[Rfam]
RNA sequence: UGGGCUGGGCGAAAGACCCUGGUCCAAGACGCGGCGGGGAAUCUCCCC
Numbered sequence: 001u002g003g004g005c006u007g008g009g010c011g012a013a014a015g016a017c018c019c020u021g022g023u024c025c026a027a028g029a030c031g032c033g034g035c036g037g038g039g040a041a042u043c044u045c046c047c048c
Stems, first nucleotide, its partner, number of pairs: 001026006007018002010015001
Dot-bracket structure: ((((((((.(....).))..))))))......................

The family of this 48-nucleotide sequence from Parablautia intestinalis is "DUF3800-XI RNA". The base pairs follow the family's consensus structure, which is taken from published work. Actinobacteria, Firmicutes, Proteobacteria, Spirochaetes (1 example).